[Rfam]
RNA sequence: CACUAAGAAAUGGGGUGCUUAUUUCAUAGGCUGAGAAGAUACCCAGAGGUCAUCCUCUAAACCUGAUCUGGAUAAUGCCAGCGUAGGGAUUUUAACGGGCUACUUU
Numbered sequence: 001c002a003c004u005a006a007g008a009a010a011u012g013g014g015g016u017g018c019u020u021a022u023u024u025c026a027u028a029g030g031c032u033g034a035g036a037a038g039a040u041a042c043c044c045a046g047a048g049g050u051c052a053u054c055c056u057c058u059a060a061a062c063c064u065g066a067u068c069u070g071g072a073u074a075a076u077g078c079c080a081g082c083g084u085a086g087g088g089a090u091u092u093u094a095a096c097g098g099g100c101u102a103c104u105u106u
Stems, first nucleotide, its partner, number of pairs: 007093004012055003016052001017031005038051003062087004068081004
Dot-bracket structure: ......((((.(((.((((((.....)))))......(((........)))))))......((((..((((......))))..))))..)))).............
The family of this 106-nucleotide RNA from Mesonia sp. HuA40 is "TPP riboswitch aptamer (THI element)".
Rfam describes the family as follows. Vitamin B(1) in its active form thiamin pyrophosphate (TPP) is an essential coenzyme that is synthesised by coupling of pyrimidine and thiazole moieties in bacteria.
The source organism's lineage runs through Bacteria, Pseudomonadati, Bacteroidota, Flavobacteriales and Mesonia.